[Rfam]
RNA sequence: ACCUAAGAUAGAGGUGCGUCUUUAGAUGAUUAGCUGGUUCGAGGUUGCCGAAACCGCAGACAUCCAGUAAAAGGCUUUGGUCGCCGAAGGAAAAGAGUUGGCAGCCCUUUUCCUGGGUGCAUUAGCGAACAGCGGUGCAACUGUCAUCAUGAAUUUAUGAUGGAGAGCUAUCUGUGCA
Numbered sequence: 001a002c003c004u005a006a007g008a009u010a011g012a013g014g015u016g017c018g019u020c021u022u023u024a025g026a027u028g029a030u031u032a033g034c035u036g037g038u039u040c041g042a043g044g045u046u047g048c049c050g051a052a053a054c055c056g057c058a059g060a061c062a063u064c065c066a067g068u069a070a071a072a073g074g075c076u077u078u079g080g081u082c083g084c085c086g087a088a089g090g091a092a093a094a095g096a097g098u099u100g101g102c103a104g105c106c107c108u109u110u111u112c113c114u115g116g117g118u119g120c121a122u123u124a125g126c127g128a129a130c131a132g133c134g135g136u137g138c139a140a141c142u143g144u145c146a147u148c149a150u151g152a153a154u155u156u157a158u159g160a161u162g163g164a165g166a167g168c169u170a171u172c173u174g175u176g177c178a
Stems, first nucleotide, its partner, number of pairs: 006173006016084003020080002024076001033068005039062001088114008097105003115142002118139006144163007
The record is a 178-nucleotide RNA sequence from [Clostridium] leptum, which matches "Lysine riboswitch aptamer" in Rfam.
About the family: Riboswitches are metabolite binding domains within certain messenger RNAs that serve as precision sensors for their corresponding targets. Allosteric rearrangement of mRNA structure is mediated by ligand binding, and this results in modulation of gene expression. This family includes riboswitches that sense lysine in a number of genes involved in lysine metabolism, including lysC.